Overview:
The family of this 170-nucleotide RNA sequence from Nocardiopsis kunsanensis is "Group II catalytic intron D1-D4-3". It scores 132 bits against the family's covariance model.
RNA sequence: GUCAUCGCGAGGUGGGGUCGGAAGGAAGCCCGAGGCGAAACCCUGCACUGAGGAACACGAACCGUGUAUGAGGCAUAUCCGUCGGGGUGAGCCCGCUACGUAGGGUGAAGCCCGUCACCGUCAAGACGGCGGAGUGUAAACACGGCAGGGGUAGGGGGACAGUAGCUGUU
Number, nucleotide and partner (000 for none) at each position: 001g000002u015003c014004a013005u012006c011007g000008c000009g000010a000011g006012g005013u004014g003015g002016g000017g000018u000019c000020g000021g000022a000023a000024g000025g000026a000027a000028g170029c000030c168031c000032g166033a000034g000035g163036c162037g000038a000039a000040a000041c156042c155043c154044u153045g152046c150047a000048c148049u147050g146051a000052g000053g000054a000055a000056c000057a000058c000059g000060a000061a000062c145063c144064g143065u142066g141067u140068a000069u000070g000071a000072g000073g137074c136075a135076u000077a000078u000079c132080c131081g130082u129083c128084g127085g113086g112087g111088u110089g000090a000091g106092c105093c104094c103095g000096c000097u000098a000099c000100g000101u000102a000103g094104g093105g092106u091107g000108a000109a000110g088111c087112c086113c085114g000115u000116c000117a000118c000119c000120g000121u000122c000123a000124a000125g000126a000127c084128g083129g082130c081131g080132g079133a000134g000135u075136g074137u073138a000139a000140a067141c066142a065143c064144g063145g062146c050147a049148g048149g000150g046151g000152u045153a044154g043155g042156g041157g000158g000159a000160c000161a000162g036163u035164a000165g000166c032167u000168g030169u000170u028
Background
The family has 406 seed sequences and 4,274 matches in Rfam 15.1.